SAM riboswitch aptamer (S box leader): a 103-nucleotide RNA sequence from Geomicrobium sp. JCM 19038. Taxonomically the source falls in Geomicrobium (Bacteria, Bacillati, Bacilli, Caryophanales).
RNA sequence: UUCUUAUCUAGAGAGGUGGAGGGACUGGCCCUUUGAAACCUCGGCAGCGGACUUUUUAAGUACUGUGCCAAUUCCAGUAGUAGCGAUACUACAAAGAUGAGAA
Numbered sequence: 001u002u003c004u005u006a007u008c009u010a011g012a013g014a015g016g017u018g019g020a021g022g023g024a025c026u027g028g029c030c031c032u033u034u035g036a037a038a039c040c041u042c043g044g045c046a047g048c049g050g051a052c053u054u055u056u057u058a059a060g061u062a063c064u065g066u067g068c069c070a071a072u073u074c075c076a077g078u079a080g081u082a083g084c085g086a087u088a089c090u091a092c093a094a095a096g097a098u099g100a101g102a103a
Stems, first nucleotide, its partner, number of pairs: 001103008013042005021031003025077004043069004048065002051061004073095001080092004
A search with the family's covariance model found it, with a score of 86 bits. Gene Ontology term of the family: regulation of gene expression.